[Rfam]
RNA sequence: GGUCGUCGCAGGCCUAAUCCUGGGCGCGUCGCCCAGGAGCCGGGGACCCAACGUACCUCUGGGGUGAAUCCACUUCGGUGGUAGGGACGCGCCUCCUACGCCCGAACCCGUCAGCUAACCCGGCCGGCAGAGGGAGAGGAACA
Numbered sequence: 001g002g003u004c005g006u007c008g009c010a011g012g013c014c015u016a017a018u019c020c021u022g023g024g025c026g027c028g029u030c031g032c033c034c035a036g037g038a039g040c041c042g043g044g045g046a047c048c049c050a051a052c053g054u055a056c057c058u059c060u061g062g063g064g065u066g067a068a069u070c071c072a073c074u075u076c077g078g079u080g081g082u083a084g085g086g087a088c089g090c091g092c093c094u095c096c097u098a099c100g101c102c103c104g105a106a107c108c109c110g111u112c113a114g115c116u117a118a119c120c121c122g123g124c125c126g127g128c129a130g131a132g133g134g135a136g137a138g139g140a141a142c143a
Stems, first nucleotide, its partner, number of pairs: 012128003018038009039124006049061002062109003070081004084103003
c-di-AMP riboswitch aptamer (ydaO/yuaA leader): a 143-nucleotide sequence from Nonomuraea maritima. The literature on the family includes a 2004 paper in Proc Natl Acad Sci U S A by Barrick et al., "New RNA motifs suggest an expanded scope for riboswitches in bacterial genetic control".